[Rfam]
RNA sequence: GAAGCGCGCCAGACCGCCGCUGGUGCGAUCUGGGAAACCAGGCACUGGAGGAACGUCCGGACUGCACAGGACGGCGUAGCAGCUAACGGCUGCCCACCGCGAGGUGAGGAUCAGAGCAACAGAGACGAGUCCGGCGGGAGUGCCGCAAGGCAGACCAGCCGGGGUGAAACGGGCAAUCUCUACGCGCAGCAAUACCAAGUAGGCCAGCGUUGACGUGGUUCCGCGGAGCUGGCGGGUAGGUAGCAUCGAGCCGGGUGGGCGACCCCUGGCCCAGAGUAAUGGCGGUCACAUGCGGGCAACCGCAUGCACAGAAUCCGGCUUAUCGGCGCGCUUCACAC
Numbered sequence: 001g002a003a004g005c006g007c008g009c010c011a012g013a014c015c016g017c018c019g020c021u022g023g024u025g026c027g028a029u030c031u032g033g034g035a036a037a038c039c040a041g042g043c044a045c046u047g048g049a050g051g052a053a054c055g056u057c058c059g060g061a062c063u064g065c066a067c068a069g070g071a072c073g074g075c076g077u078a079g080c081a082g083c084u085a086a087c088g089g090c091u092g093c094c095c096a097c098c099g100c101g102a103g104g105u106g107a108g109g110a111u112c113a114g115a116g117c118a119a120c121a122g123a124g125a126c127g128a129g130u131c132c133g134g135c136g137g138g139a140g141u142g143c144c145g146c147a148a149g150g151c152a153g154a155c156c157a158g159c160c161g162g163g164g165u166g167a168a169a170c171g172g173g174c175a176a177u178c179u180c181u182a183c184g185c186g187c188a189g190c191a192a193u194a195c196c197a198a199g200u201a202g203g204c205c206a207g208c209g210u211u212g213a214c215g216u217g218g219u220u221c222c223g224c225g226g227a228g229c230u231g232g233c234g235g236g237u238a239g240g241u242a243g244c245a246u247c248g249a250g251c252c253g254g255g256u257g258g259g260c261g262a263c264c265c266c267u268g269g270c271c272c273a274g275a276g277u278a279a280u281g282g283c284g285g286u287c288a289c290a291u292g293c294g295g296g297c298a299a300c301c302g303c304a305u306g307c308a309c310a311g312a313a314u315c316c317g318g319c320u321u322a323u324c325g326g327c328g329c330g331c332u333u334c335a336c337a338c
Stems, first nucleotide, its partner, number of pairs: 001334010011323001012287007020048007053321001055319001057318005062189004069220001071219001074185005079093005094108001095106004109180002114178002116174002131163002133160003137156002141152004193242004203233006214225004250270006257264002